[Rfam]
Nucleotides: 095
Stems, first nucleotide, its partner, number of pairs: 009087003013083002018078002023073003029068008
Number, partner (000 for none) and nucleotide at each position: 001000u002000a003000u004000u005000a006000g007000c008000c009087c010086c011085g012000a013083u014082c015000g016000c017000a018078a019077c020000g021000g022000c023073a024072u025071c026000c027000u028000u029068u030067u031066u032065u033064g034063u035062u036061u037000u038000u039000c040000g041000c042000g043000a044000u045000g046000g047000a048000u049000g050000a051000c052000g053000c054000a055000u056000g057000g058000g059000c060000a061036a062035a063034a064033c065032a066031a067030a068029a069000a070000a071025g072024a073023u074000a075000u076000a077019g078018u079000g080000g081000a082014g083013a084000g085011c086010g087009g088000g089000a090000c091000u092000g093000c094000u095000c